[Rfam]
RNA: Enterococcus sRNA 30
Organism: Staphylococcus aureus
RNA sequence: GUCAAUUUGAUAGCGGGAACAAAUAAUUAGAUGUCCUUUUUUAGGAGGGCUUAGUUUUUUGUACCCAGUUUAAGAAUACCUUUAUCAUGUGAUUCUAAAGUAUCCAGAGAAUAUCUGUAUGCUUUGUAUACCUAUGGUUAUGCAUAAAAAUCCCAGUGAUAAAAG
Numbered sequence: 001g002u003c004a005a006u007u008u009g010a011u012a013g014c015g016g017g018a019a020c021a022a023a024u025a026a027u028u029a030g031a032u033g034u035c036c037u038u039u040u041u042u043a044g045g046a047g048g049g050c051u052u053a054g055u056u057u058u059u060u061g062u063a064c065c066c067a068g069u070u071u072a073a074g075a076a077u078a079c080c081u082u083u084a085u086c087a088u089g090u091g092a093u094u095c096u097a098a099a100g101u102a103u104c105c106a107g108a109g110a111a112u113a114u115c116u117g118u119a120u121g122c123u124u125u126g127u128a129u130a131c132c133u134a135u136g137g138u139u140a141u142g143c144a145u146a147a148a149a150a151u152c153c154c155a156g157u158g159a160u161a162a163a164a165g
Base pairs, nucleotide, nucleotide: 005077006076007075008074012070013069014068015066016065017064019062020061021060022059023058025056026055027054028053029052030051033050034049035048036047037046038045039044081163082162083161084160085159086158087157088156091152092151093150094149097125098124099123100122101121102120103119105117106116107115108114126143127142128141129140130139131137132136